terC RNA: a 58-nucleotide RNA from Sandaracinobacter neustonicus. By type it is a cis-regulatory element. The organism belongs to Sandaracinobacter, within Bacteria. The match comes from Rfam's covariance-model search (54 bits).
[Rfam]
RNA sequence: CAACAAUUCCGGGCCCCUCUGGCCGCGCGGGCGCGCGCGGUGAUGUCGGAAGCGCAGA
Dot-bracket structure: ......((((((.........((((((((....))))))))....)))))).......